[Rfam]
RNA sequence: UUACCGGCGGUCUCUAAUUCGCUUGGUGCAGGUCGGGAACUGAUUGAUUGCCGCUCCUUCUUCUUCUUCUUCUUCUUUUUUUUUCAUUCAAUUGGAUCCAAUUUAAGCCAGCUGAUUGGAGGAUGCGAGAAUUGGAUCCCGCCUUGCAUCAACUGAAUCGGAGACCGCGGUGAGG
Numbered sequence: 001u002u003a004c005c006g007g008c009g010g011u012c013u014c015u016a017a018u019u020c021g022c023u024u025g026g027u028g029c030a031g032g033u034c035g036g037g038a039a040c041u042g043a044u045u046g047a048u049u050g051c052c053g054c055u056c057c058u059u060c061u062u063c064u065u066c067u068u069c070u071u072c073u074u075c076u077u078u079u080u081u082u083u084u085c086a087u088u089c090a091a092u093u094g095g096a097u098c099c100a101a102u103u104u105a106a107g108c109c110a111g112c113u114g115a116u117u118g119g120a121g122g123a124u125g126c127g128a129g130a131a132u133u134g135g136a137u138c139c140c141g142c143c144u145u146g147c148a149u150c151a152a153c154u155g156a157a158u159c160g161g162a163g164a165c166c167g168c169g170g171u172g173a174g175g
Stems, first nucleotide, its partner, number of pairs: 013162002017158004023152010034141005040135006

Rfam assigns this 175-nucleotide RNA from Corchorus olitorius to the family "MIR168 microRNA precursor family".
Lineage of the source: Eukaryota > Magnoliopsida > Gunneridae > Grewioideae > Corchorus.
Rfam links the family to the GO terms miRNA-mediated post-transcriptional gene silencing and RISC complex.
It scores 111 bits against the family's covariance model.